[Rfam]
The record is an 87-nucleotide RNA sequence, which matches "GA-cis RNA" in Rfam.
RNA sequence: AGUAGGAGGACCCAUGAUGCGCAGCAUCAUCUUGCAUGGGGCCGACGACUUGCCGCCGAAGCGUCAGCUGAGGGGGCGUUACCGCAA
Numbered sequence: 001a002g003u004a005g006g007a008g009g010a011c012c013c014a015u016g017a018u019g020c021g022c023a024g025c026a027u028c029a030u031c032u033u034g035c036a037u038g039g040g041g042c043c044g045a046c047g048a049c050u051u052g053c054c055g056c057c058g059a060a061g062c063g064u065c066a067g068c069u070g071a072g073g074g075g076g077c078g079u080u081a082c083c084g085c086a087a
Base pairs, nucleotide, nucleotide: 008043009042011040012039013038014030015029016028017027018026019025052077053076054075056073057072060069061068